RNA sequence: GGGGACCUUCGGGGCCCUAUAACCAACGCGCUUUCACCUUGGUGCGAGCGUGCCUAGCAAACGGAAGACAGAGA
Number, nucleotide and partner (000 for none) at each position: 001g018002g017003g016004g015005a000006c014007c013008u012009u000010c000011g000012g008013g007014g006015c004016c003017c002018u001019a000020u000021a000022a000023c000024c000025a000026a000027c052028g051029c050030g049031c048032u000033u000034u000035c000036a000037c000038c000039u047040u046041g000042g000043u000044g000045c000046g040047a039048g031049c030050g029051u028052g027053c000054c000055u000056a000057g000058c000059a000060a000061a000062c000063g000064g000065a000066a000067g000068a000069c000070a000071g000072a000073g000074a000
RNA: L2-Alphaproteobacteria ribosomal protein leader